[Rfam]
RNA sequence: UACUAGCAAAUUCUUUCUCUACCUCCCCGUGGUGAUCGCUGAGAGUUCUUUCUUAAUGGAAAACUGCAGACGGAGAAGA
Numbered sequence: 001u002a003c004u005a006g007c008a009a010a011u012u013c014u015u016u017c018u019c020u021a022c023c024u025c026c027c028c029g030u031g032g033u034g035a036u037c038g039c040u041g042a043g044a045g046u047u048c049u050u051u052c053u054u055a056a057u058g059g060a061a062a063a064c065u066g067c068a069g070a071c072g073g074a075g076a077a078g079a
Base pairs, nucleotide, nucleotide: 012079013078014077015076016075018073019072021033022032023031044065045064046063047062049060050059052058